[Rfam]
RNA sequence: CUGGCAUAACAGUCAUAGCAGAAGUAUCCACAAUGUGGCCCCUGUCAGAUUCCAACAAACCUGUGAAUUCUGCU
Numbered sequence: 001c002u003g004g005c006a007u008a009a010c011a012g013u014c015a016u017a018g019c020a021g022a023a024g025u026a027u028c029c030a031c032a033a034u035g036u037g038g039c040c041c042c043u044g045u046c047a048g049a050u051u052c053c054a055a056c057a058a059a060c061c062u063g064u065g066a067a068u069u070c071u072g073c074u
Stems, first nucleotide, its partner, number of pairs: 013038002017074007024036003046063003050059002
RNA: Mammalian CPEB3 ribozyme
Organism: Crocodylus porosus